[Rfam]
RNA sequence: AAGUCGGCAAGUCAGAUCCGUAACUUCGGGAUAAGGAUUGGCUCUAAGGGCUGGGCCGGUCGGGCUGAGGCGCGAAGCGGGGCUGGGCCCGGCCGCGGCUGGGGGAGCGGCCGUCCCGCGGCGCCCCCUCUCGUUCCCGCUCUGGGGGUCGGUCGCCGGCCCGUCCCUCGCCGAGCCGGCGCCCCCGUCCCUCCGGAACCGGCCCCCCCCUCGGGGGGGGAAGGGCCGGGGGGCUCCGGUGGCGUCGGCGAGGCGCCGGGGCGGUGUCCGGCGGCCGGCGCCCGCGGCGGGGCCGGCGGGGGGGGAGCGCCGCGGUGCGCGGCGGCGACCCUGGACGUGCGCCGGGCCCUUCUCGCGGAUCGCCCCAGCUACGGCCCGCGUCGGGAACUUCGUUCCGGCGUCCGCGCCCCCCUCUCCGGGGGGGGGUCGGGCCCGGGGCGGAGCCGCCCCCGGCGCGGCGCCUCGGCCGGCACCUGGCAGCCGGCUUAGAACUGGUGCGGACCAG
Numbered sequence: 001a002a003g004u005c006g007g008c009a010a011g012u013c014a015g016a017u018c019c020g021u022a023a024c025u026u027c028g029g030g031a032u033a034a035g036g037a038u039u040g041g042c043u044c045u046a047a048g049g050g051c052u053g054g055g056c057c058g059g060u061c062g063g064g065c066u067g068a069g070g071c072g073c074g075a076a077g078c079g080g081g082g083c084u085g086g087g088c089c090c091g092g093c094c095g096c097g098g099c100u101g102g103g104g105g106a107g108c109g110g111c112c113g114u115c116c117c118g119c120g121g122c123g124c125c126c127c128c129u130c131u132c133g134u135u136c137c138c139g140c141u142c143u144g145g146g147g148g149u150c151g152g153u154c155g156c157c158g159g160c161c162c163g164u165c166c167c168u169c170g171c172c173g174a175g176c177c178g179g180c181g182c183c184c185c186c187g188u189c190c191c192u193c194c195g196g197a198a199c200c201g202g203c204c205c206c207c208c209c210c211u212c213g214g215g216g217g218g219g220g221a222a223g224g225g226c227c228g229g230g231g232g233g234c235u236c237c238g239g240u241g242g243c244g245u246c247g248g249c250g251a252g253g254c255g256c257c258g259g260g261g262c263g264g265u266g267u268c269c270g271g272c273g274g275c276c277g278g279c280g281c282c283c284g285c286g287g288c289g290g291g292g293c294c295g296g297c298g299g300g301g302g303g304g305g306a307g308c309g310c311c312g313c314g315g316u317g318c319g320c321g322g323c324g325g326c327g328a329c330c331c332u333g334g335a336c337g338u339g340c341g342c343c344g345g346g347c348c349c350u351u352c353u354c355g356c357g358g359a360u361c362g363c364c365c366c367a368g369c370u371a372c373g374g375c376c377c378g379c380g381u382c383g384g385g386a387a388c389u390u391c392g393u394u395c396c397g398g399c400g401u402c403c404g405c406g407c408c409c410c411c412c413u414c415u416c417c418g419g420g421g422g423g424g425g426g427u428c429g430g431g432c433c434c435g436g437g438g439c440g441g442a443g444c445c446g447c448c449c450c451c452g453g454c455g456c457g458g459c460g461c462c463u464c465g466g467c468c469g470g471c472a473c474c475u476g477g478c479a480g481c482c483g484g485c486u487u488a489g490a491a492c493u494g495g496u497g498c499g500g501a502c503c504a505g
Stems, first nucleotide, its partner, number of pairs: 015039005024029001040493002043490006049482005055471009064369003069364003077356004085349009094339004099334006107326002110323005494498001
Dot-bracket structure: ..............(((((....(....).....)))))((.(((((((((((.((((((((((((..(((.....((((....(((((((((((((.((((((..((.(((((............................................................................................................................................................................................................))))).))..)))))).)))).)))))))))...)))).....)))..))).............................................................................................)))))))))......)))))..)))))).))(...).......

Rfam assigns this 505-nucleotide part of an RNA from Labeo rohita to the family "Eukaryotic large subunit ribosomal RNA". The match comes from Rfam's covariance-model search (2741 bits).